[Rfam]
RNA sequence: GUAACUCUGUAAAGUCGAAGUCUUACCAUUAUUGGCAAGAUACUUAGUAGGCGAUAUGGAGUUAU
Dot-bracket structure: (((((((((((..(((...(((((.(((....))).)))))........)))..)))))))))))

Overview: The record is a 65-nucleotide sequence from Mycoplasma sp. CAG:472, which matches "DUF3800-VIII RNA" in Rfam. Rfam classes the family as a small RNA. Bacteroidetes, Cyanobacteria, Firmicutes, Planctomycetes (1 example), Proteobacteria, Tenericutes (1 example).